Shown here is a 65-nucleotide RNA sequence from Chitinophaga pinensis, a member of the family "DUF805 RNA". The base pairs follow the family's consensus structure, which is taken from published work. Rfam classes the family as a cis-regulatory element. The source organism's lineage runs through Bacteria, Pseudomonadati, Bacteroidota, Chitinophagaceae and Chitinophaga pinensis.

[Rfam]
RNA sequence: ACCAGGUGGAGCAGCGACCACUCAAAAAACGGGCGAAGCCGAAAAGCCAGACGAGUAGGAACAAA
Numbered sequence: 001a002c003c004a005g006g007u008g009g010a011g012c013a014g015c016g017a018c019c020a021c022u023c024a025a026a027a028a029a030c031g032g033g034c035g036a037a038g039c040c041g042a043a044a045a046g047c048c049a050g051a052c053g054a055g056u057a058g059g060a061a062c063a064a065a
Stems, first nucleotide, its partner, number of pairs: 006021004032048003039059002
Dot-bracket structure: .....((((........))))..........(((....[[.....))).........]]......